[Rfam]
RNA sequence: AAGAUACAUGAUGGCAGAUGAUCAAAACUGUCUGACACAAUUUGAGCUUGCUAUAGAAAGAAAGUCUAACCUAUUCCGGUGUUCUCUUCUCUGUGAGACAACCCGUUAUAUAGACUUAAACAAU
Numbered sequence: 001a002a003g004a005u006a007c008a009u010g011a012u013g014g015c016a017g018a019u020g021a022u023c024a025a026a027a028c029u030g031u032c033u034g035a036c037a038c039a040a041u042u043u044g045a046g047c048u049u050g051c052u053a054u055a056g057a058a059a060g061a062a063a064g065u066c067u068a069a070c071c072u073a074u075u076c077c078g079g080u081g082u083u084c085u086c087u088u089c090u091c092u093g094u095g096a097g098a099c100a101a102c103c104c105g106u107u108a109u110a111u112a113g114a115c116u117u118a119a120a121c122a123a124u
Stems, first nucleotide, its partner, number of pairs: 009044001012037002015034006062117007072110003077105003085098004

A member of the RNA family "Small nucleolar RNA SNORA28" from Jaculus jaculus, 124 nucleotides long. Rfam 15.1 lists 922 matches to the family in 535 species. Rfam classes the family as an H/ACA-box small nucleolar RNA. Rfam links the family to the GO terms nucleolus and RNA processing. Rfam's curators write: ACA28 is a member of the H/ACA class of snoRNA that guide the sites of modification of uridines to pseudouridines. Clan: SNORA28 clan.